Small nucleolar RNA Z43: an 88-nucleotide sequence from Raphanus sativus. The family's RNA type in Rfam is C/D-box small nucleolar RNA. Rfam 15.1 lists 859 matches to the family in 240 species. Lineage of the source: Eukaryota > Streptophytina > Spermatophyta > Brassicales > Raphanus. The base pairs follow the family's consensus structure, which was predicted with PFOLD.

RNA sequence: GGACAGUGACGAUAGAAAAAGGUCUCGUUCGUCGUAAUAUCGGCCGUAAAAGGUCUAUUUGCCGACCAUUCUGUUAUAUUCUGAGUCC
Numbered sequence: 001g002g003a004c005a006g007u008g009a010c011g012a013u014a015g016a017a018a019a020a021g022g023u024c025u026c027g028u029u030c031g032u033c034g035u036a037a038u039a040u041c042g043g044c045c046g047u048a049a050a051a052g053g054u055c056u057a058u059u060u061g062c063c064g065a066c067c068a069u070u071c072u073g074u075u076a077u078a079u080u081c082u083g084a085g086u087c088c
Stems, first nucleotide, its partner, number of pairs: 001088004048060003